[Rfam]
RNA: Small nucleolar RNA ACA64
Organism: Buceros rhinoceros
RNA sequence: GCAGUCUGAAAAUCACUGGGCGUCUCCUGUGGCCCCCGGUGAGAUAACUGUGCCGACAGCAUAGGGAACAUUAAGCUUAUUACCCACGGUAAGGUGUGGGGAGUGAAACCCAUGUUCCCAUAGCC
Number, nucleotide and partner (000 for none) at each position: 001g000002c000003a000004g000005u000006c050007u000008g048009a000010a045011a000012a000013u042014c041015a040016c039017u000018g000019g034020g033021c032022g000023u000024c000025u000026c000027c000028u000029g000030u000031g000032g021033c020034c019035c000036c000037c000038g000039g016040u015041g014042a013043g000044a000045u010046a000047a000048c008049u000050g006051u000052g000053c000054c000055g000056a000057c000058a000059g000060c000061a000062u000063a000064g000065g118066g000067a116068a115069c114070a113071u112072u000073a000074a000075g000076c000077u106078u105079a104080u103081u102082a000083c000084c000085c098086a097087c096088g000089g000090u000091a000092a000093g000094g000095u000096g087097u086098g085099g000100g000101g000102a081103g080104u079105g078106a077107a000108a000109c000110c000111c000112a071113u070114g069115u068116u067117c000118c065119c000120a000121u000122a000123g000124c000125c000